[Rfam]
RNA: Bacterial large subunit ribosomal RNA, nucleotides 1711 to 2070
RNA sequence: CGAGAUAACUCUCGUUAAGGAACUCGGCAAAUUACUCCUGUAACUUCGGGAUAAGGGAGACCGGAGAUGCUUUAGCCCUGCGGCAAAGAGUAUCGAAGGUGGCACAAAAAUGGGGGUAGCGACUGUUUACCAAAAACACAGGACUCUGCCAAAUCGGAAGAUGAAGUAUAGGGUCUGACACCUGCCCGGUGCUGGAAGGUCAAGAGGACGGGUUAGCAGCAAUGCGAAGCUCGGAAUUUAAGCCCCAGUAAACGGCGGCCGUAACUAUGACGGUCCUAAGGUAGCGAAAUUCCUUGUCGGGUAAGUUCCGACCUGCACGAAUGGUGUAACGACUUCCCCACUGUCUCAACGAGAGUCUCG
Numbered sequence: 001c002g003a004g005a006u007a008a009c010u011c012u013c014g015u016u017a018a019g020g021a022a023c024u025c026g027g028c029a030a031a032u033u034a035c036u037c038c039u040g041u042a043a044c045u046u047c048g049g050g051a052u053a054a055g056g057g058a059g060a061c062c063g064g065a066g067a068u069g070c071u072u073u074a075g076c077c078c079u080g081c082g083g084c085a086a087a088g089a090g091u092a093u094c095g096a097a098g099g100u101g102g103c104a105c106a107a108a109a110a111u112g113g114g115g116g117u118a119g120c121g122a123c124u125g126u127u128u129a130c131c132a133a134a135a136a137c138a139c140a141g142g143a144c145u146c147u148g149c150c151a152a153a154u155c156g157g158a159a160g161a162u163g164a165a166g167u168a169u170a171g172g173g174u175c176u177g178a179c180a181c182c183u184g185c186c187c188g189g190u191g192c193u194g195g196a197a198g199g200u201c202a203a204g205a206g207g208a209c210g211g212g213u214u215a216g217c218a219g220c221a222a223u224g225c226g227a228a229g230c231u232c233g234g235a236a237u238u239u240a241a242g243c244c245c246c247a248g249u250a251a252a253c254g255g256c257g258g259c260c261g262u263a264a265c266u267a268u269g270a271c272g273g274u275c276c277u278a279a280g281g282u283a284g285c286g287a288a289a290u291u292c293c294u295u296g297u298c299g300g301g302u303a304a305g306u307u308c309c310g311a312c313c314u315g316c317a318c319g320a321a322u323g324g325u326g327u328a329a330c331g332a333c334u335u336c337c338c339c340a341c342u343g344u345c346u347c348a349a350c351g352a353g354a355g356u357c358u359c360g
Stems, first nucleotide, its partner, number of pairs: 001360004009355008018346003035059005044049001060100003072087002075084003101105001113339004118334002120331002124138003141176008149166001153162003179326004184256003189253002191249005198244003204238002209233005216225002257275006276280001286313001296312006
Dot-bracket structure: ((((....((((((((.(((..............(((((....(....).....)))))(((.........((.(((....))).))..........)))(...).......((((.((((..(((.........)))..(((((((((...(((....)))...)..))))))))..((((.(((..(((((((..(((...((...(((((..((......))...)))))...))...))))))))..)))))((((((.......))))))(...).....(.........((((((.....))))))).........))))...)).)).))))....))).)))))))).))))